Rfam assigns this 144-nucleotide RNA from Digitaria exilis to the family "MIR2118 microRNA precursor family". The family has 7 seed sequences and 2,377 matches in Rfam 15.1. A reference for the family is Xue et al. (2009), "Characterization and expression profiles of miRNAs in rice seeds", Nucleic Acids Res. The source organism's lineage runs through Eukaryota, Magnoliopsida, commelinids, Poales and Digitaria.

[Rfam]
Nucleotides: 144
Base pairs, nucleotide, nucleotide: 009135010134011133012132013131015129016128017127021125022124023123026120027119028118029117030116031115032114033113034112037109038108039107040106041105042104043103044102045101046100047099049096050095051094053092055091056090057089058088059087060086061085062084063083
Number, partner (000 for none) and nucleotide at each position: 001000g002000c003000u004000a005000g006000g007000a008000a009135g010134a011133g012132g013131a014000a015129g016128a017127a018000a019000g020000a021125g022124a023123g024000u025000u026120u027119c028118u029117a030116a031115g032114a033113g034112c035000g036000u037109u038108g039107g040106g041105a042104a043103c044102g045101g046100g047099a048000a049096c050095a051094u052000g053092g054000a055091g056090g057089a058088a059087a060086g061085c062084a063083u064000g065000a066000a067000a068000g069000c070000u071000u072000a073000u074000a075000u076000a077000g078000u079000c080000u081000c082000a083063g084062u085061g086060u087059u088058u089057u090056c091055c092053c093000g094051a095050u096049g097000c098000c099047u100046c101045c102044c103043g104042u105041u106040c107039c108038u109037a110000u111000g112034g113033u114032u115031c116030u117029u118028a119027g120026a121000u122000g123023u124022u125021c126000c127017u128016u129015c130000c131013u132012c133011u134010u135009c136000c137000u138000u139000a140000g141000g142000c143000c144000u